[Rfam]
RNA sequence: UAGGCGGUUGCCGAAAAGCCUUGAAGAGAGUAGGUA
Numbered sequence: 001u002a003g004g005c006g007g008u009u010g011c012c013g014a015a016a017a018g019c020c021u022u023g024a025a026g027a028g029a030g031u032a033g034g035u036a
Stems, first nucleotide, its partner, number of pairs: 002021004010035003